This 161-nucleotide sequence from Spinacia oleracea belongs to the Rfam family "U1 spliceosomal RNA". Taxonomically the source falls in Spinacia (Eukaryota, Viridiplantae, eudicotyledons, Chenopodioideae). The base pairs follow the family's consensus structure, which is taken from published work. By type it is a spliceosomal small nuclear RNA. Rfam links the family to the GO terms pre-mRNA 5'-splice site binding, U1 snRNP and mRNA 5'-splice site recognition. The match comes from Rfam's covariance-model search (131 bits).

[Rfam]
RNA sequence: UUACUUACCUGGAUGAGGUCUAUGAGCGAUCAAUAAGGCUCAUGGCCUAGGCUGAUGGCUUCUAUUGCACUUAGGAAGGGUAUUAGCCUAAGAUCUCCCCAUGUGGGAGAGUCUACGUCAUAAUUUGUGAUAAUGGGGGCCUGCGUUCGCGCGGCUCUCGU
Number, nucleotide and partner (000 for none) at each position: 001u000002u000003a000004c000005u000006u000007a000008c000009c000010u000011g000012g119013a118014u117015g116016a048017g047018g046019u045020c044021u000022a000023u042024g041025a040026g039027c038028g000029a000030u000031c000032a000033a000034u000035a000036a000037g000038g027039c026040u025041c024042a023043u000044g020045g019046c018047c017048u016049a089050g088051g087052c000053u086054g000055a083056u082057g081058g000059c079060u078061u077062c075063u074064a000065u000066u000067g000068c000069a000070c000071u000072u000073a000074g063075g062076a000077a061078g060079g059080g000081u057082a056083u055084u000085a000086g053087c051088c050089u049090a000091a114092g113093a112094u110095c109096u108097c000098c106099c105100c000101a000102u000103g000104u000105g099106g098107g000108a096109g095110a094111g000112u093113c092114u091115a000116c015117g014118u013119c012120a000121u000122a000123a000124u000125u000126u000127g000128u000129g000130a000131u000132a000133a000134u160135g159136g158137g157138g156139g000140c000141c000142u153143g152144c151145g150146u000147u000148c000149g000150c145151g144152c143153g142154g000155c000156u138157c137158u136159c135160g134161u000